[Rfam]
RNA sequence: GACAUGGGGUAGCGAUCACCCCACGAGGCGACAGCUAGAGAAUCGCGUCCUUGAACCCCGAAGCAACGGAGGGACGCAGCUAUG
Numbered sequence: 001g002a003c004a005u006g007g008g009g010u011a012g013c014g015a016u017c018a019c020c021c022c023a024c025g026a027g028g029c030g031a032c033a034g035c036u037a038g039a040g041a042a043u044c045g046c047g048u049c050c051u052u053g054a055a056c057c058c059c060g061a062a063g064c065a066a067c068g069g070a071g072g073g074a075c076g077c078a079g080c081u082a083u084g
Stems, first nucleotide, its partner, number of pairs: 005023006045077008
Dot-bracket structure: ....((((((.......)))))).....................((((((((.................)))))))).......
Shown here is an 84-nucleotide RNA sequence from Rhizobium sp. P32RR-XVIII, a member of the family "chrB-a RNA". Rfam 15.1 lists 347 matches to the family in 339 species. The source organism's lineage runs through Bacteria, Pseudomonadati, Alphaproteobacteria, Rhizobiaceae and Rhizobium. By type it is a cis-regulatory element.